[Rfam]
RNA sequence: CGUAAUUGCUCCUGUAAUUCGCUCUGGAUAAGAGCGUCUGCUAAAUUACUAAAA
Numbered sequence: 001c002g003u004a005a006u007u008g009c010u011c012c013u014g015u016a017a018u019u020c021g022c023u024c025u026g027g028a029u030a031a032g033a034g035c036g037u038c039u040g041c042u043a044a045a046u047u048a049c050u051a052a053a054a
Stems, first nucleotide, its partner, number of pairs: 013043001014041003020036006
Rfam assigns this 54-nucleotide RNA from Hucho hucho to the family "UnaL2 LINE 3' element". Pairs were carried over by alignment from the consensus structure, which is taken from published work. On this family, see Baba et al., RNA 2004: "Solution structure of an RNA stem-loop derived from the 3' conserved region of eel LINE UnaL2". The eel long interspersed element (LINE) UnaL2 and its partner short interspersed element (SINE) share a conserved 3' tail containing a stem-loop that is critical for their retrotransposition. Presumably, the first step of retrotransposition is the recognition of their 3' tails by UnaL2-encoded reverse transcriptase. The solution structure of a 17-nucleotide RNA derived from the 3' tail of UnaL2 was determined by NMR. A search with the family's covariance model found it, with a score of 55 bits.